[Rfam]
This 94-nucleotide RNA from Malus baccata belongs to the Rfam family "Small nucleolar RNA Z107/R87".
It is annotated as a C/D-box small nucleolar RNA.
The source organism's lineage runs through Eukaryota, Streptophytina, Spermatophyta, Amygdaloideae and Malus.
A reference for the family is Barneche et al. (2001), "Identification of 66 box C/D snoRNAs in Arabidopsis thaliana: extensive gene duplications generated multiple isoforms predicting new ribosomal RNA 2'-O-methylation sites", J Mol Biol.
A search with the family's covariance model found it, with a score of 57 bits.
The base pairs follow the family's consensus structure, which was predicted with RNAfold.
RNA sequence: AUUGACUAUGAUGACCCAAUGAAAUUCAAGCUCAACAGACCGGAUUGUAGACUUCUCUUUUUAGAGAAUGUUAGGGUUUUAAUACUAAGUCAAU
Numbered sequence: 001a002u003u004g005a006c007u008a009u010g011a012u013g014a015c016c017c018a019a020u021g022a023a024a025u026u027c028a029a030g031c032u033c034a035a036c037a038g039a040c041c042g043g044a045u046u047g048u049a050g051a052c053u054u055c056u057c058u059u060u061u062u063a064g065a066g067a068a069u070g071u072u073a074g075g076g077u078u079u080u081a082a083u084a085c086u087a088a089g090u091c092a093a094u
Base pairs, nucleotide, nucleotide: 001094002093003092004091005090006089
Dot-bracket structure: ((((((..................................................................................))))))